Overview: Rfam assigns this 156-nucleotide sequence from Ustilaginoidea virens to the family "Small nucleolar RNA snR80". A search with the family's covariance model found it, with a score of 58 bits.
RNA sequence: GAACGCCUUGACUACACUCUGAGAUUUACCAAACCUUUGCAGUGGUUCAUUUCAAUUUUUGUACAAGGCAGAUUAAUCUAAUACUGGCCCUCUACUCACCGCGACACCUCAGCCUCAGGCUAUAUGGGUGUAGUGGUCCAUGAAUAAGGCCUACAU
Number, nucleotide and partner (000 for none) at each position: 001g000002a000003a000004c000005g000006c000007c000008u066009u065010g064011a000012c000013u000014a000015c000016a000017c000018u000019c000020u054021g053022a052023g051024a050025u049026u000027u000028a046029c045030c044031a000032a000033a000034c000035c000036u000037u000038u000039g000040c000041a000042g000043u000044g030045g029046u028047u000048c000049a025050u024051u023052u022053c021054a020055a000056u000057u000058u000059u000060u000061g000062u000063a000064c010065a009066a008067g000068g000069c000070a000071g000072a000073u000074u000075a000076a000077u000078c000079u000080a000081a000082u000083a000084c000085u000086g151087g150088c149089c148090c000091u000092c000093u000094a000095c000096u000097c000098a000099c136100c135101g134102c133103g000104a131105c130106a129107c000108c128109u127110c126111a000112g000113c000114c000115u000116c000117a000118g000119g000120c000121u000122a000123u000124a000125u000126g110127g109128g108129u106130g105131u104132a000133g102134u101135g100136g099137u000138c000139c000140a000141u000142g000143a000144a000145u000146a000147a000148g089149g088150c087151c086152u000153a000154c000155a000156u000
Taxonomically the source falls in Ustilaginoidea (Eukaryota, Dikarya, sordariomyceta, Hypocreomycetidae).
The literature on the family includes a 2004 paper in Nucleic Acids Res by Schattner et al., "Genome-wide searching for pseudouridylation guide snoRNAs: analysis of the Saccharomyces cerevisiae genome".
Rfam links the family to the GO terms nucleolus and RNA processing.
By type it is an H/ACA-box small nucleolar RNA.